Source information: The record is a 120-nucleotide RNA sequence from Lawsonibacter faecis, which matches "Molybdenum/Tungsten riboswitch aptamer (Moco RNA motif)" in Rfam.
[Rfam]
RNA sequence: CCGAAAACAGCUCUCCGAGCGCCCUCCCCUAAGGGCCAAGCCUAUGGGGACCGCGCCGCAGGGUGGGACUGGAAACGCUCCCGCCUUCCGUAUUUGAAAAGGAGAGGCCCGCCUGGAUAU
Numbered sequence: 001c002c003g004a005a006a007a008c009a010g011c012u013c014u015c016c017g018a019g020c021g022c023c024c025u026c027c028c029c030u031a032a033g034g035g036c037c038a039a040g041c042c043u044a045u046g047g048g049g050a051c052c053g054c055g056c057c058g059c060a061g062g063g064u065g066g067g068a069c070u071g072g073a074a075a076c077g078c079u080c081c082c083g084c085c086u087u088c089c090g091u092a093u094u095u096g097a098a099a100a101g102g103a104g105a106g107g108c109c110c111g112c113c114u115g116g117a118u119a120u
Stems, first nucleotide, its partner, number of pairs: 003114001011106006019056004025050005033043004061086008070077002087097002
Description
A search with the family's covariance model found it, with a score of 80 bits.